[Rfam]
Notes
The record is a 77-nucleotide RNA sequence from Actinocorallia herbida, which matches "6C RNA" in Rfam. Its family is annotated with sporulation in the Gene Ontology.
RNA sequence: AUGGGCCCGGCUCUACCCCCCCGGAGCCGGACCAUCGCGACGGCCCCCGCUCUCCCCCCCGGCGGGGGUCGUCGCAC
Numbered sequence: 001a002u003g004g005g006c007c008c009g010g011c012u013c014u015a016c017c018c019c020c021c022c023g024g025a026g027c028c029g030g031a032c033c034a035u036c037g038c039g040a041c042g043g044c045c046c047c048c049g050c051u052c053u054c055c056c057c058c059c060c061g062g063c064g065g066g067g068g069u070c071g072u073c074g075c076a077c
Base pairs, nucleotide, nucleotide: 004033005032007030008029009028010027011026012025013024039073040072041071042070043069044068045067046066047065048064049063050062051061
Background
The family's consensus secondary structure is taken from published work. The source organism's lineage runs through Bacteria, Actinomycetes, Streptosporangiales, Thermomonosporaceae and Actinocorallia.